The record is a 320-nucleotide RNA from Nothoprocta ornata, which matches "Small Cajal body-specific RNA 7" in Rfam. It scores 206 bits against the family's covariance model. The base pairs follow the family's consensus structure. For this family Rfam cites "Cajal body-specific small nuclear RNAs: a novel class of 2'-O-methylation and pseudouridylation guide RNAs" (Darzacq et al., EMBO J, 2002). The family's RNA type in Rfam is small Cajal body RNA.
RNA sequence: UGGAAAUGAUGAAAUAGAGAUAAUUGGAUGUCUCCCUGAAUGGAGUGUGUAUGGUAAAUAGCAUUUAAUUAAAAUCAAACUUUUGGGGGGUGGGGGAAGUGUGUAUGUUUGUGUGUGGUAUAUAAAAGGCUAUAAACUGGGGGCACUGAUAAUGAAGUGCUGAUUCCGGAGUGCAUCUGAGGCAUGUUGUUGAAUUCUGGGGCGUUGCUUUUCAACAUUGCCGAUGAUUAGUGCCCAAAACAAGCUCACCAGACUAGCCUAGGCAUCUUAAAAAUCUCUAACAGGUUCAUUAGUGAAAAUGAUCCUGUGAUCUGAUCCAA
Numbered sequence: 001u002g003g004a005a006a007u008g009a010u011g012a013a014a015u016a017g018a019g020a021u022a023a024u025u026g027g028a029u030g031u032c033u034c035c036c037u038g039a040a041u042g043g044a045g046u047g048u049g050u051a052u053g054g055u056a057a058a059u060a061g062c063a064u065u066u067a068a069u070u071a072a073a074a075u076c077a078a079a080c081u082u083u084u085g086g087g088g089g090g091u092g093g094g095g096g097a098a099g100u101g102u103g104u105a106u107g108u109u110u111g112u113g114u115g116u117g118g119u120a121u122a123u124a125a126a127a128g129g130c131u132a133u134a135a136a137c138u139g140g141g142g143g144c145a146c147u148g149a150u151a152a153u154g155a156a157g158u159g160c161u162g163a164u165u166c167c168g169g170a171g172u173g174c175a176u177c178u179g180a181g182g183c184a185u186g187u188u189g190u191u192g193a194a195u196u197c198u199g200g201g202g203c204g205u206u207g208c209u210u211u212u213c214a215a216c217a218u219u220g221c222c223g224a225u226g227a228u229u230a231g232u233g234c235c236c237a238a239a240a241c242a243a244g245c246u247c248a249c250c251a252g253a254c255u256a257g258c259c260u261a262g263g264c265a266u267c268u269u270a271a272a273a274a275u276c277u278c279u280a281a282c283a284g285g286u287u288c289a290u291u292a293g294u295g296a297a298a299a300u301g302a303u304c305c306u307g308u309g310a311u312c313u314g315a316u317c318c319a320a
Stems, first nucleotide, its partner, number of pairs: 001319004185217005192210001193206003197201001